[Rfam]
RNA sequence: UCUGUCAACUAUAACGGAUAACAGUCAGGAGACUAAAUAGUUGACAGAGUUACAAAU
Numbered sequence: 001u002c003u004g005u006c007a008a009c010u011a012u013a014a015c016g017g018a019u020a021a022c023a024g025u026c027a028g029g030a031g032a033c034u035a036a037a038u039a040g041u042u043g044a045c046a047g048a049g050u051u052a053c054a055a056a057u
Stems, first nucleotide, its partner, number of pairs: 001048009
Dot-bracket structure: (((((((((..............................))))))))).........